The record is a 117-nucleotide RNA from Etheostoma spectabile, which matches "U5 spliceosomal RNA" in Rfam. Lineage of the source: Eukaryota > Deuterostomia > Craniata > Teleostei > Oligocephalus. U5 RNA is a component of both types of known spliceosome. Its family is annotated with U5 snRNP and spliceosomal tri-snRNP complex assembly in the Gene Ontology.
RNA sequence: UCACUCUGGUUUCUCUUCAUAAUGCACGAGUCUUGCGCCUUUUACUAAAGACUUCCUUGGAGGGGAACAACGAUGAGUUGAAACUAUUUUUGUUGAGCUUUGCUGUUUGGCCGAGCC
Numbered sequence: 001u002c003a004c005u006c007u008g009g010u011u012u013c014u015c016u017u018c019a020u021a022a023u024g025c026a027c028g029a030g031u032c033u034u035g036c037g038c039c040u041u042u043u044a045c046u047a048a049a050g051a052c053u054u055c056c057u058u059g060g061a062g063g064g065g066a067a068c069a070a071c072g073a074u075g076a077g078u079u080g081a082a083a084c085u086a087u088u089u090u091u092g093u094u095g096a097g098c099u100u101u102g103c104u105g106u107u108u109g110g111c112c113g114a115g116c117c
Base pairs, nucleotide, nucleotide: 003078004077005076006075009068010067011066012065013064014063015062016061017060018059019058028054029053030052031051032050033049034048095117097116098115099114100113102111